RNA sequence: CAUUAGAUUGGCGCAAAAGUCAUUGCAGUUUUUGCCAUUUAAAAAAAUGGCAAAAACUGCAAUGACUUUUGCGCCAACCUAAUA
Numbered sequence: 001c002a003u004u005a006g007a008u009u010g011g012c013g014c015a016a017a018a019g020u021c022a023u024u025g026c027a028g029u030u031u032u033u034g035c036c037a038u039u040u041a042a043a044a045a046a047a048u049g050g051c052a053a054a055a056a057c058u059g060c061a062a063u064g065a066c067u068u069u070u071g072c073g074c075c076a077a078c079c080u081a082a083u084a
Stems, first nucleotide, its partner, number of pairs: 002083005008077033
RNA: mir-548 microRNA precursor family